[Rfam]
RNA: Small nucleolar RNA SNORD100
Organism: Xenopus tropicalis
RNA sequence: UUUACCUAUGAUGAGAAUUUGGCUCCCUCUUCUGAAACUAGUGAGGAAAUUGCCAAUUGUUACCCAAUAAUCUCUGAGGUGCA
Dot-bracket structure: (.((((.......................................................................)))).)